Notes:
Rfam assigns this 112-nucleotide sequence from Camarhynchus parvulus to the family "Small nucleolar RNA SNORD89". Taxonomically the source falls in Camarhynchus (Eukaryota, Vertebrata, Euteleostomi, Thraupidae). A reference for the family is Huttenhofer et al. (2001), "RNomics: an experimental approach that identifies 201 candidates for novel, small, non-messenger RNAs in mouse", EMBO J. It scores 83 bits against the family's covariance model. It is annotated as a C/D-box small nucleolar RNA.

RNA sequence: GCUGAGGAGUGAUGACAAAAGGCCGAAUUGCAGUGCUCCAGCAAGCAGUUUGCUCUCCUUGGAAGCACAAUGACAAAAAUUAUCCGAAGCGAAUCACUAGUCUGACCUCAGU
Numbered sequence: 001g002c003u004g005a006g007g008a009g010u011g012a013u014g015a016c017a018a019a020a021g022g023c024c025g026a027a028u029u030g031c032a033g034u035g036c037u038c039c040a041g042c043a044a045g046c047a048g049u050u051u052g053c054u055c056u057c058c059u060u061g062g063a064a065g066c067a068c069a070a071u072g073a074c075a076a077a078a079a080u081u082a083u084c085c086g087a088a089g090c091g092a093a094u095c096a097c098u099a100g101u102c103u104g105a106c107c108u109c110a111g112u
Base pairs, nucleotide, nucleotide: 001112002111003110004109005108006107007106014102015101016100022031023030032098033097034096035095037092038091039089045084048068049067051065054062055061069083072080
Gene Ontology terms of the family: nucleolus and RNA processing.